[Rfam]
RNA sequence: UUUUACCACUAGGGGUGCCAUUUAAAUGGCUGAGAUUAAAGUGUGACUUUGAGACUCUUAGAACCUGAUCUGGUUUAUACCAGCGUAGGGAAGUGGAACAAGGAAAUU
Numbered sequence: 001u002u003u004u005a006c007c008a009c010u011a012g013g014g015g016u017g018c019c020a021u022u023u024a025a026a027u028g029g030c031u032g033a034g035a036u037u038a039a040a041g042u043g044u045g046a047c048u049u050u051g052a053g054a055c056u057c058u059u060a061g062a063a064c065c066u067g068a069u070c071u072g073g074u075u076u077a078u079a080c081c082a083g084c085g086u087a088g089g090g091a092a093g094u095g096g097a098a099c100a101a102g103g104a105a106a107u108u
Stems, first nucleotide, its partner, number of pairs: 006096005011058004016052001017030005037051005064089004070083004

Record summary:
The record is a 108-nucleotide RNA from Heyndrickxia shackletonii, which matches "TPP riboswitch aptamer (THI element)" in Rfam. The source organism's lineage runs through Bacteria, Bacillati, Bacilli, Bacillaceae and Heyndrickxia. A search with the family's covariance model found it, with a score of 89 bits.